[Rfam]
RNA sequence: GACACCUCCAAGUGUGCAGGGCACUGGUGGGGGCCAGGGCGGGCCCAGCGAAAGUGCAGGACCUGGCACUUAGUCGUAAGUGAG
Numbered sequence: 001g002a003c004a005c006c007u008c009c010a011a012g013u014g015u016g017c018a019g020g021g022c023a024c025u026g027g028u029g030g031g032g033g034c035c036a037g038g039g040c041g042g043g044c045c046c047a048g049c050g051a052a053a054g055u056g057c058a059g060g061a062c063c064u065g066g067c068a069c070u071u072a073g074u075c076g077u078a079a080g081u082g083a084g
Stems, first nucleotide, its partner, number of pairs: 003082003007078001009076001010071006017065004021057005028050002031046005